[Rfam]
Record summary: The family of this 67-nucleotide sequence from Oryctolagus cuniculus is "Small Nucleolar RNA SNORD64". The family has 17 seed sequences and 130 matches in Rfam 15.1. The base pairs follow the family's consensus structure, which was predicted with RNAalifold. Rfam classes the family as a C/D-box small nucleolar RNA. Its Rfam clan is "SNORD74 clan". For this family Rfam cites "The IC-SNURF-SNRPN transcript serves as a host for multiple small nucleolar RNA species and as an antisense RNA for UBE3A" (Runte et al., Hum Mol Genet, 2001). About the family: The human snoRNA HBII-13 belongs to the C/D family of snoRNAs. It is expressed mainly in the brain, but is also in the lungs, the kidneys and muscle. HBII-13 snoRNA has no identified RNA target and is encoded together with HBII-436, HBII-437, HBII-438A/B and the clusters of HBII-85, HBII-52 snoRNA in a 460 kb intron of the large, paternally expressed, transcription unit (SNURF-SNRNP-UBE3A AS). This is antisense to maternally expressed UBE3A gene (Runt et al., 2001). The sequence is in the family's curated seed alignment.
RNA sequence: GGAUUUAUGAUGAGCUGUAUUUACUGAGCAUAAUGAAGGGAGGCUCCAUGUGAUUACUCUGAAGUCC
Numbered sequence: 001g002g003a004u005u006u007a008u009g010a011u012g013a014g015c016u017g018u019a020u021u022u023a024c025u026g027a028g029c030a031u032a033a034u035g036a037a038g039g040g041a042g043g044c045u046c047c048a049u050g051u052g053a054u055u056a057c058u059c060u061g062a063a064g065u066c067c
Stems, first nucleotide, its partner, number of pairs: 001067005012059003020053002026046004